[Rfam]
RNA: GcvB RNA
RNA sequence: ACUUAAUGAGUGGUAAUUCCUUAUCGGUUAUAGCUUAUACUUAAUUAAGUAUUAUGUUGUGUUUGCAUAUUGUUCGGGCAACCGAACGGAGUAACUGAAUUUUUAAGUUACUUAAUUUAACUUCCUGUAUAUUUUAGACCUAAUUUUGGGUUCGUAAUGCGCCGCUCUUAUGAGCGGUGUUUUUUUAU
Numbered sequence: 001a002c003u004u005a006a007u008g009a010g011u012g013g014u015a016a017u018u019c020c021u022u023a024u025c026g027g028u029u030a031u032a033g034c035u036u037a038u039a040c041u042u043a044a045u046u047a048a049g050u051a052u053u054a055u056g057u058u059g060u061g062u063u064u065g066c067a068u069a070u071u072g073u074u075c076g077g078g079c080a081a082c083c084g085a086a087c088g089g090a091g092u093a094a095c096u097g098a099a100u101u102u103u104u105a106a107g108u109u110a111c112u113u114a115a116u117u118u119a120a121c122u123u124c125c126u127g128u129a130u131a132u133u134u135u136a137g138a139c140c141u142a143a144u145u146u147u148g149g150g151u152u153c154g155u156a157a158u159g160c161g162c163c164g165c166u167c168u169u170a171u172g173a174g175c176g177g178u179g180u181u182u183u184u185u186u187a188u
Stems, first nucleotide, its partner, number of pairs: 003039001006031004011026006070089008090112006130156003159180007